The family of this 100-nucleotide sequence from Candidatus Erwinia dacicola is "Gammaprotebacteria rimP leader". The match comes from Rfam's covariance-model search (70 bits). The family's consensus secondary structure is taken from published work. It is annotated as a cis-regulatory leader. Gene Ontology term of the family: regulation of gene expression.
RNA sequence: CCGCCUUUAGCGGUUUACAGGGUCCAGUGACAUUAAGCCCCGAAUUUUUCGGGUUUUGGUUAUCAGGAAGCAGAAUCACUGGGCUAUAGGCCCUUUUUUU
Number, nucleotide and partner (000 for none) at each position: 001c000002c000003g000004c000005c000006u000007u000008u000009a000010g000011c000012g000013g000014u000015u000016u000017a000018c000019a000020g000021g000022g000023u000024c000025c000026a000027g000028u000029g000030a000031c000032a000033u000034u000035a000036a056037g055038c000039c053040c052041c051042g050043a000044a000045u000046u000047u000048u000049u000050c042051g041052g040053g039054u000055u037056u036057u000058g000059g000060u000061u000062a000063u000064c000065a000066g000067g000068a000069a000070g000071c000072a000073g000074a000075a000076u000077c000078a000079c000080u000081g093082g092083g091084c090085u000086a000087u000088a000089g000090g084091c083092c082093c081094u000095u000096u000097u000098u000099u000100u000